RNA: c-di-AMP riboswitch aptamer (ydaO/yuaA leader)
Organism: Cohnella xylanilytica
RNA sequence: CAUACUCUCCAGCCGAAUUUCCGCAAGAAAACGGGGGAACCAUUUGUUGCGUAUGCUUGCCCGCAAGCAUGCUCGACCGGGGUGAAUUCCGAGCGCUUAGGCGCAGGAUAGGGCAGCCUGUUCAGGCCCGAACCCGUCAGCUAACCUCGUAGGCUGCCCGAACAGGACUC
Numbered sequence: 001c002a003u004a005c006u007c008u009c010c011a012g013c014c015g016a017a018u019u020u021c022c023g024c025a026a027g028a029a030a031a032c033g034g035g036g037g038a039a040c041c042a043u044u045u046g047u048u049g050c051g052u053a054u055g056c057u058u059g060c061c062c063g064c065a066a067g068c069a070u071g072c073u074c075g076a077c078c079g080g081g082g083u084g085a086a087u088u089c090c091g092a093g094c095g096c097u098u099a100g101g102c103g104c105a106g107g108a109u110a111g112g113g114c115a116g117c118c119u120g121u122u123c124a125g126g127c128c129c130g131a132a133c134c135c136g137u138c139a140g141c142u143a144a145c146c147u148c149g150u151a152g153g154c155u156g157c158c159c160g161a162a163c164a165g166g167a168c169u170c
Base pairs, nucleotide, nucleotide: 011155012154013153014152018030019029020028031150032149033148034147035146036145041079080135081134082133088108089107090106111129112128113127114126